This 60-nucleotide sequence belongs to the Rfam family "Pseudomonas sRNA P26". The base pairs follow the family's consensus structure, which was predicted with RNAalifold. It is one of the family's seed sequences. On this family, see Livny et al., Nucleic Acids Res 2006: "Identification of 17 Pseudomonas aeruginosa sRNAs and prediction of sRNA-encoding genes in 10 diverse pathogens using the bioinformatic tool sRNAPredict2". The family's RNA type in Rfam is non-coding RNA gene. Rfam's curators write: This small RNA (sRNA) was computationally identified in the genome of the opportunistic pathogen Pseudomonas aeruginosa and its expression verified by northern blot analysis.

RNA sequence: ACGCUAGGUUCGCUGCCUGAGUAAUCAGGCAAGGGCUGGUGAUUAUUUAAUCACCGGCCU
Numbered sequence: 001a002c003g004c005u006a007g008g009u010u011c012g013c014u015g016c017c018u019g020a021g022u023a024a025u026c027a028g029g030c031a032a033g034g035g036c037u038g039g040u041g042a043u044u045a046u047u048u049a050a051u052c053a054c055c056g057g058c059c060u
Stems, first nucleotide, its partner, number of pairs: 014031005034059010